[Rfam]
Actinobacteria sRNA Ms_IGR-5: a 243-nucleotide RNA sequence from Actinocrispum wychmicini. NCBI's taxonomy places the organism under Bacteria, Actinomycetota, Actinomycetes, Pseudonocardiales, Actinocrispum. On this family, see Li et al., RNA 2013: "Identification of small RNAs in Mycobacterium smegmatis using heterologous Hfq". The family's RNA type in Rfam is small RNA.
RNA sequence: ACACGAGAAAGGAGGUGGUCCAAAGUUGUAUACCAACAGGACACGUGAGGUGGCUGUCCGUUAGGACCACCACAGGCUUUUGCCGGCUCUCGAACACGGAAGACAACGGCCUCACACCGUUGCCGUGACGCGGGCGGUGGUCGGCGAAUCCACAGCAGUCACCGGCCCUCGGGGUUUCCAGGAAAGUCCAAUCCUGGGCCUUGUGCCCUUCGGCACAGGGAGUCACCCCGGGGGUUGUUCUGU
Dot-bracket structure: .............((((((.................................))))))((((.((.((((..................................................................))))))))))................(((((((((((((..((((((........))))))...........................)))))))))))))......